[Rfam]
This 135-nucleotide sequence from Dasyornis broadbenti belongs to the Rfam family "Small Cajal body specific RNA 3". Rfam describes the family as follows. scaRNAs are a specific class of small nuclear RNAs which localise to the Cajal bodies and guide the modification of RNA polymerase II transcribed spliceosomal RNAs U1, U2, U4, U5 and U12. For this family Rfam cites "RNomics: an experimental approach that identifies 201 candidates for novel, small, non-messenger RNAs in mouse" (Huttenhofer et al., EMBO J, 2001). The organism belongs to Dasyornis, within Eukaryota.
RNA sequence: GCUGGGACCAGUUGGGACCAGUCAUGGGCAAAAUACUUACUUUUUGUCCACUCUUGCAGUCUUCCUAGAGCAAAGUAGAGGGCUCUGUCUGCUUUAGGACAGCCAACUAAAUCAGUUUGUUCCUCUCCAUACAUA
Numbered sequence: 001g002c003u004g005g006g007a008c009c010a011g012u013u014g015g016g017a018c019c020a021g022u023c024a025u026g027g028g029c030a031a032a033a034u035a036c037u038u039a040c041u042u043u044u045u046g047u048c049c050a051c052u053c054u055u056g057c058a059g060u061c062u063u064c065c066u067a068g069a070g071c072a073a074a075g076u077a078g079a080g081g082g083c084u085c086u087g088u089c090u091g092c093u094u095u096a097g098g099a100c101a102g103c104c105a106a107c108u109a110a111a112u113c114a115g116u117u118u119g120u121u122c123c124u125c126u127c128c129a130u131a132c133a134u135a
Base pairs, nucleotide, nucleotide: 004065005064006063009059011057012056025050026049027048028047029046031043032042033041078127079126080125081124085119087117089115091113093111094110095109096108097107
Dot-bracket structure: ...(((..(.((............(((((.(((.......)))..))))).....)).)...)))............((((...(.(.(.(.(((((.........))))).).).).)....))))........